[Rfam]
RNA sequence: CGAACCAUCUAAUGUUGCUUGGUGGUUAAUAGGGACUUCAAAGUAGAGCCCUAGUGGGAGUGGUAACUUGCGACACUUUCAAAUUGCGGGGACGCCCUUAGAGCUCUGAUUACGGCGGCUCAUCGAAAGAUAGAGUGCAGCAGCAGGUUAAUGGCCUCGCGGAUCGUAAAAACAUCAGAGAUUGGGUAAUCCGCAGCCAAGUCCUAAAGGGUACCUUUCAGCUACCCCAUGGAUGCAGUUCAUCGACUAAAUGGAAGUGGGUGCCCUUCCUUUACCGGAAGGGUGCUUGAGAUAUAGUCAGCCCCUCGUGAGAGCGAGCU
Numbered sequence: 001c002g003a004a005c006c007a008u009c010u011a012a013u014g015u016u017g018c019u020u021g022g023u024g025g026u027u028a029a030u031a032g033g034g035a036c037u038u039c040a041a042a043g044u045a046g047a048g049c050c051c052u053a054g055u056g057g058g059a060g061u062g063g064u065a066a067c068u069u070g071c072g073a074c075a076c077u078u079u080c081a082a083a084u085u086g087c088g089g090g091g092a093c094g095c096c097c098u099u100a101g102a103g104c105u106c107u108g109a110u111u112a113c114g115g116c117g118g119c120u121c122a123u124c125g126a127a128a129g130a131u132a133g134a135g136u137g138c139a140g141c142a143g144c145a146g147g148u149u150a151a152u153g154g155c156c157u158c159g160c161g162g163a164u165c166g167u168a169a170a171a172a173c174a175u176c177a178g179a180g181a182u183u184g185g186g187u188a189a190u191c192c193g194c195a196g197c198c199a200a201g202u203c204c205u206a207a208a209g210g211g212u213a214c215c216u217u218u219c220a221g222c223u224a225c226c227c228c229a230u231g232g233a234u235g236c237a238g239u240u241c242a243u244c245g246a247c248u249a250a251a252u253g254g255a256a257g258u259g260g261g262u263g264c265c266c267u268u269c270c271u272u273u274a275c276c277g278g279a280a281g282g283g284u285g286c287u288u289g290a291g292a293u294a295u296a297g298u299c300a301g302c303c304c305c306u307c308g309u310g311a312g313a314g315c316g317a318g319c320u
Stems, first nucleotide, its partner, number of pairs: 005025005011019001013017001029038001074259005080253002085195006095186003196239002201234004209227005243300001245299005261286009305318005
This 320-nucleotide RNA sequence from Microbotryum saponariae belongs to the Rfam family "Group I catalytic intron". Taxonomically the source falls in Microbotryum (Eukaryota, Opisthokonta, Microbotryales, Microbotryaceae). Group I catalytic introns are large self-splicing ribozymes. They catalyse their own excision from mRNA, tRNA and rRNA precursors in a wide range of organisms. The core secondary structure consists of 9 paired regions (P1-P9). These fold to essentially two domains - the P4-P6 domain (formed from the stacking of P5, P4, P6 and P6a helices) and the P3-P9 domain (formed from the P8, P3, P7 and P9 helices). The base pairs follow the family's consensus structure, which is taken from published work.